RNA: Small nucleolar RNA R160
Organism: Theobroma umbraticum
RNA sequence: CGCAAGAUGAAGAGAUCUGUUUAAUGGCUGAAUUUGAUGUAGAAUUCCCACAUCAUUAUAAUGGUCUUCAAAGUUCUCUGAUUGCU
Numbered sequence: 001c002g003c004a005a006g007a008u009g010a011a012g013a014g015a016u017c018u019g020u021u022u023a024a025u026g027g028c029u030g031a032a033u034u035u036g037a038u039g040u041a042g043a044a045u046u047c048c049c050a051c052a053u054c055a056u057u058a059u060a061a062u063g064g065u066c067u068u069c070a071a072a073g074u075u076c077u078c079u080g081a082u083u084g085c086u
Stems, first nucleotide, its partner, number of pairs: 002085004